Background
Shown here is a 55-nucleotide RNA sequence from Ursus americanus, a member of the family "Small nucleolar RNA SNORD66". It scores 32 bits against the family's covariance model. About the family: snoRNA HBII-142 is part of the C/D family of snoRNAs. It is the human orthologue of the mouse MBII-142 snoRNA and is predicted to guide 2'O-ribose methylation of small 18S rRNA at residue C1272. The literature on the family includes a 2001 paper in EMBO J by Huttenhofer et al., "RNomics: an experimental approach that identifies 201 candidates for novel, small, non-messenger RNAs in mouse". Gene Ontology terms of the family: RNA processing and nucleolus.
RNA sequence: UUCCUGUGAUGGUUAACUUUAUGUGCCAACUUGGCUGGGCCACAGGCAUUUGGAA
Numbered sequence: 001u002u003c004c005u006g007u008g009a010u011g012g013u014u015a016a017c018u019u020u021a022u023g024u025g026c027c028a029a030c031u032u033g034g035c036u037g038g039g040c041c042a043c044a045g046g047c048a049u050u051u052g053g054a055a
Base pairs, nucleotide, nucleotide: 001055002054003053004052